Description: This 101-nucleotide RNA sequence from Papillibacter cinnamivorans belongs to the Rfam family "c-di-GMP-I riboswitch aptamer". It scores 55 bits against the family's covariance model. The source organism's lineage runs through Bacteria, Bacillota, Eubacteriales, Oscillospiraceae and Papillibacter cinnamivorans.

RNA sequence: CAUACGAAUAGGCAAACCUGCCGAAAGGCAGGGACGCAAAGCUUAGGAGUCUGAUUCAUACUGCGGUCAAUCCGCAGGUGAAAGACAGUCCGGCCGCAUGA
Dot-bracket structure: ...........((...((((((....))))))...))...(((..((((((....((((..................))))..)))..)))))).......